[Rfam]
RNA sequence: GCCCUCGUAGCUCAAUGGUAGAGCGCGUCACUAGUAAUGGAAUGACGAGGUUGCCGGUUCGAUUCCGUCCGAGGGCA
Numbered sequence: 001g002c003c004c005u006c007g008u009a010g011c012u013c014a015a016u017g018g019u020a021g022a023g024c025g026c027g028u029c030a031c032u033a034g035u036a037a038u039g040g041a042a043u044g045a046c047g048a049g050g051u052u053g054c055c056g057g058u059u060c061g062a063u064u065c066c067g068u069c070c071g072a073g074g075g076c077a
Base pairs, nucleotide, nucleotide: 001076002075003074004073005072006071007070010024011023012022013021026047027046028045029044030043053069055067056066057065
tRNA: a 77-nucleotide sequence from Hyaloscypha hepaticicola. Rfam's curators write: Transfer RNA (tRNA) molecules are approximately 80 nucleotides in length. The source organism's lineage runs through Eukaryota, Ascomycota, Pezizomycotina, Hyaloscyphaceae and Hyaloscypha hepaticicola/Rhizoscyphus ericae species complex.